[Rfam]
RNA sequence: AGGGCCCGGGAGCAGGGCGGCCGUUUGUACCCUAACCCUAAAAGAGAAAGGCGUGGGCUCUUGUGCUUUUGCUCCCCGCACGCUGUUUUUCUCGCUGACUUUCAGCGGGCGGAAAAGCCUAGGCCCGCUGCCGUCCACCUUAUUUUCUAGACCAAACAAAAAAUGUCAGCUGCUGGCUCGCCCCUCCCGGGGACCUGCGGUGGUUCGCCCGCCUAGCCCCCGCGUCCCGCCUAGAGGCCGCGGUCGGCCCGGGGCUUCUCCGGAAGCACCCAUUGCCGUCGCGAAGAGUUAGGCUCUGUCAGCCGCGGGUCCUUGGGUGUGCCAAGGCGAGACGCUCACCGCAGGGAGAAUAACAGAGCAACGUCCCCGCGCGCGGUGCGUUUCCCUGAGCUGUGGGACUUGCACUCGGGACUCAGCUCUUACACUU
Number, nucleotide and partner (000 for none) at each position: 001a000002g000003g000004g000005c191006c190007c189008g188009g187010g186011a185012g184013c000014a000015g183016g182017g181018c180019g179020g177021c176022c175023g174024u000025u000026u000027g000028u000029a000030c000031c000032c000033u000034a000035a000036c000037c000038c000039u000040a000041a000042a000043a000044g000045a000046g000047a000048a000049a000050g000051g000052c000053g000054u000055g000056g000057g000058c000059u000060c000061u000062u000063g000064u000065g118066c117067u116068u115069u114070u000071g000072c000073u000074c000075c000076c000077c111078g110079c109080a000081c107082g106083c105084u104085g103086u000087u000088u000089u000090u000091c000092u000093c000094g170095c169096u168097g167098a166099c165100u163101u162102u161103c085104a084105g083106c082107g081108g000109g079110c078111g077112g000113a000114a069115a068116a067117g066118c065119c000120u000121a000122g000123g000124c000125c000126c000127g000128c000129u000130g000131c000132c000133g000134u000135c000136c000137a000138c000139c000140u000141u000142a000143u000144u000145u000146u000147c000148u000149a000150g000151a000152c000153c000154a000155a000156a000157c000158a000159a000160a000161a102162a101163a100164u000165g099166u098167c097168a096169g095170c094171u000172g000173c000174u023175g022176g021177c020178u000179c019180g018181c017182c016183c015184c012185u011186c010187c009188c008189g007190g006191g005192g000193a000194c345195c344196u343197g342198c341199g340200g339201u000202g000203g000204u000205u000206c000207g333208c000209c331210c329211g328212c327213c326214u325215a000216g000217c000218c000219c317220c316221c315222g314223c000224g000225u000226c309227c308228c307229g306230c305231c000232u000233a000234g000235a000236g000237g000238c000239c283240g282241c281242g280243g279244u000245c278246g277247g276248c275249c000250c000251g271252g270253g269254g000255c000256u000257u000258c000259u000260c000261c000262g000263g000264a000265a000266g000267c000268a000269c253270c252271c251272a000273u000274u000275g248276c247277c246278g245279u243280c242281g241282c240283g239284a000285a297286g296287a295288g294289u000290u000291a000292g000293g000294c288295u287296c286297u285298g000299u000300c000301a000302g000303c000304c000305g230306c229307g228308g227309g226310u000311c000312c000313u000314u222315g221316g220317g219318u000319g000320u000321g000322c000323c000324a000325a214326g213327g212328c211329g210330a000331g209332a000333c207334g000335c000336u000337c000338a000339c200340c199341g198342c197343a196344g195345g194346g000347a000348g000349a000350a000351u000352a000353a000354c000355a000356g419357a418358g417359c416360a000361a000362c000363g412364u411365c410366c409367c408368c000369g000370c000371g000372c000373g000374c000375g000376g405377u404378g403379c402380g401381u000382u000383u398384c397385c396386c395387u000388g000389a000390g000391c000392u000393g000394u000395g386396g385397g384398a383399c000400u000401u380402g379403c378404a377405c376406u000407c000408g367409g366410g365411a364412c363413u000414c000415a000416g359417c358418u357419c356420u000421u000422a000423c000424a000425c000426u000427u000
RNA: Vertebrate telomerase RNA
Organism: Galemys pyrenaicus